[Rfam]
RNA: Fluoride riboswitch aptamer (crcB RNA motif)
RNA sequence: UUCCAAAAAGGAAAUGGUGUUCUUCCUUAUCCAAACCGCUUUAACAAAGCUGAUGACGCCUGAUUUAUU
Number, nucleotide and partner (000 for none) at each position: 001u000002u000003c000004c000005a000006a000007a000008a000009a000010g026011g025012a024013a023014a000015u000016g060017g059018u058019g057020u056021u055022c000023u013024u012025c011026c010027u000028u000029a000030u000031c000032c000033a000034a000035a000036c000037c000038g050039c049040u048041u047042u000043a000044a000045c000046a000047a041048a040049g039050c038051u000052g000053a000054u000055g021056a020057c019058g018059c017060c016061u000062g000063a000064u000065u000066u000067a000068u000069u000